[Rfam]
RNA sequence: CCCGCUCGAUGACGGGAACAGCCGAAACGUCCCGGGACACGAGGCUCUUCCCCGAUGGCUGCGGG
Numbered sequence: 001c002c003c004g005c006u007c008g009a010u011g012a013c014g015g016g017a018a019c020a021g022c023c024g025a026a027a028c029g030u031c032c033c034g035g036g037a038c039a040c041g042a043g044g045c046u047c048u049u050c051c052c053c054g055a056u057g058g059c060u061g062c063g064g065g
Stems, first nucleotide, its partner, number of pairs: 001065005014052005020046004029038003
RNA: Selenocysteine insertion sequence 1
Organism: Nothocercus julius